A member of the RNA family "tp2" from Enterobacter cancerogenus, 111 nucleotides long. The sequence is in the family's curated seed alignment. For this family Rfam cites "A survey of small RNA-encoding genes in Escherichia coli" (Hershberg et al., Nucleic Acids Res, 2003). The organism belongs to Enterobacter cancerogenus, within Bacteria.

Nucleotides: 111
Base pairs, nucleotide, nucleotide: 001098002097003096004095022089023088024087025086036085037084038083039082040081041080042079043078044077045076048073049072050071051070052069054067055066056065057064058063
Number, partner (000 for none) and nucleotide at each position: 001098g002097g003096u004095a005000u006000u007000c008000c009000u010000u011000a012000u013000c014000u015000a016000u017000c018000u019000a020000a021000u022089a023088c024087g025086u026000u027000g028000a029000u030000u031000u032000g033000u034000c035000u036085g037084g038083a039082a040081c041080c042079u043078g044077u045076c046000c047000c048073a049072u050071u051070g052069u053000a054067u055066u056065u057064u058063c059000g060000u061000c062000a063058g064057a065056a066055a067054a068000c069052a070051c071050a072049a073048u074000a075000a076045g077044a078043c079042a080041g081040g082039u083038u084037c085036u086025g087024c088023g089022u090000u091000u092000a093000g094000u095004u096003g097002c098001c099000g100000c101000g102000c103000u104000c105000u106000a107000a108000a109000a110000u111000g